Background: The family of this 507-nucleotide RNA sequence from Halosaccharopolyspora lacisalsi is "Saccharopolyspora sRNA 350". The family's consensus secondary structure was predicted with RNAfold. The match comes from Rfam's covariance-model search (118 bits). Rfam 15.1 lists 1,170 matches to the family in 705 species. Rfam links the family to the GO term regulation of secondary metabolite biosynthetic process.
RNA sequence: UUGGCCGUGACCGGCCAGGUCUGCUCGGCACCGGCCAACACCUGGUCGCCGAGGUACUGGCCGUCGGCGAGCACCUCCAGGGAGGUCUCACCGUCGUACUGCCCCUUGGCGAAGGUGUUGACCUUCCCGUGGGCCAGCAACACCACCUCCUCGGCCGGCUCGCCGGCGGUGGUGAUGACCUCGCCCGGCGCGUAGUGGCGCUGGGCGAACCGCUCGGCCAGCGCGCUCAGGGCCGCGUCGUCGCCGAGGUCGCGCAGCGAGGGCAGUUCGCGCAGUUCCGGGGGCAGGACGCGGACCUGAUCACCGGUGUUGGCGAAGGUCAGGCGGCCGUCACCGAAGGUGUAGGUCAACCGGCGGUUGACCCGGUACGAACCGCUGGUGGUAUCGACCCAGGGCAGCAUGCGCGACAGCCACCGCGGGCUGAUCGAGGCCAUCUGCGGCGGCGUCUUGGUCGUACUGGCCAGGUUGCGGGCAGCUGCCGUGCCCAGGCUGAGCUGGCCCUGACCA
Numbered sequence: 001u002u003g004g005c006c007g008u009g010a011c012c013g014g015c016c017a018g019g020u021c022u023g024c025u026c027g028g029c030a031c032c033g034g035c036c037a038a039c040a041c042c043u044g045g046u047c048g049c050c051g052a053g054g055u056a057c058u059g060g061c062c063g064u065c066g067g068c069g070a071g072c073a074c075c076u077c078c079a080g081g082g083a084g085g086u087c088u089c090a091c092c093g094u095c096g097u098a099c100u101g102c103c104c105c106u107u108g109g110c111g112a113a114g115g116u117g118u119u120g121a122c123c124u125u126c127c128c129g130u131g132g133g134c135c136a137g138c139a140a141c142a143c144c145a146c147c148u149c150c151u152c153g154g155c156c157g158g159c160u161c162g163c164c165g166g167c168g169g170u171g172g173u174g175a176u177g178a179c180c181u182c183g184c185c186c187g188g189c190g191c192g193u194a195g196u197g198g199c200g201c202u203g204g205g206c207g208a209a210c211c212g213c214u215c216g217g218c219c220a221g222c223g224c225g226c227u228c229a230g231g232g233c234c235g236c237g238u239c240g241u242c243g244c245c246g247a248g249g250u251c252g253c254g255c256a257g258c259g260a261g262g263g264c265a266g267u268u269c270g271c272g273c274a275g276u277u278c279c280g281g282g283g284g285c286a287g288g289a290c291g292c293g294g295a296c297c298u299g300a301u302c303a304c305c306g307g308u309g310u311u312g313g314c315g316a317a318g319g320u321c322a323g324g325c326g327g328c329c330g331u332c333a334c335c336g337a338a339g340g341u342g343u344a345g346g347u348c349a350a351c352c353g354g355c356g357g358u359u360g361a362c363c364c365g366g367u368a369c370g371a372a373c374c375g376c377u378g379g380u381g382g383u384a385u386c387g388a389c390c391c392a393g394g395g396c397a398g399c400a401u402g403c404g405c406g407a408c409a410g411c412c413a414c415c416g417c418g419g420g421c422u423g424a425u426c427g428a429g430g431c432c433a434u435c436u437g438c439g440g441c442g443g444c445g446u447c448u449u450g451g452u453c454g455u456a457c458u459g460g461c462c463a464g465g466u467u468g469c470g471g472g473c474a475g476c477u478g479c480c481g482u483g484c485c486c487a488g489g490c491u492g493a494g495c496u497g498g499c500c501c502u503g504a505c506c507a
Stems, first nucleotide, its partner, number of pairs: 003390002006387002011382003016327001018325001022322002025319002029315001035313008045305001048302001052298001054233002057230004062225003065111002068108001078101003082097001084095003117222004122217002127212001129210002132206001134204004141197001144195001149192001154189005160183001166173002236294001240290003243285003250281002254278001256277003262269001329342004351379007362370001391429001394426001397425001399423002403418003437476002440473001441471001443469003447465006477507002480503002485498004